A member of the RNA family "c-di-GMP-I riboswitch aptamer" from Propionispora sp. 2/2-37, 89 nucleotides long. GEMM was predicted in a large-scale screen for bacterial structured RNA regulatory elements. The base pairs follow the family's consensus structure, which is taken from published work.
RNA sequence: UGAAUAUUGGGGUAAACUUAUCGAAAGGUAAGGACACAAAGCCAUGGGUCUAAGGAUGCAACUGCAUCUAUGAUUGCCAGGUUGCCUGU
Numbered sequence: 001u002g003a004a005u006a007u008u009g010g011g012g013u014a015a016a017c018u019u020a021u022c023g024a025a026a027g028g029u030a031a032g033g034a035c036a037c038a039a040a041g042c043c044a045u046g047g048g049u050c051u052a053a054g055g056a057u058g059c060a061a062c063u064g065c066a067u068c069u070a071u072g073a074u075u076g077c078c079a080g081g082u083u084g085c086c087u088g089u
Base pairs, nucleotide, nucleotide: 012037013036017032018031019030020029021028022027040083041082042081043080045079046078047077048074049073050072055068056067057066058065